Overview:
A member of the RNA family "mir-1175 microRNA precursor family" from Nesidiocoris tenuis, 73 nucleotides long. The match comes from Rfam's covariance-model search (66 bits). Lineage of the source: Eukaryota > Pterygota > Cimicoidea > Bryocorinae > Nesidiocoris.

RNA sequence: CGAGAUCAGUGGAGAAGUGGUGUCUGCACUGUAUUGCGAGACUAGUGAGAUUCAACUCCUCCAACUGACCUUU
Numbered sequence: 001c002g003a004g005a006u007c008a009g010u011g012g013a014g015a016a017g018u019g020g021u022g023u024c025u026g027c028a029c030u031g032u033a034u035u036g037c038g039a040g041a042c043u044a045g046u047g048a049g050a051u052u053c054a055a056c057u058c059c060u061c062c063a064a065c066u067g068a069c070c071u072u073u
Stems, first nucleotide, its partner, number of pairs: 007067003010063005017057001018055001023050002027047005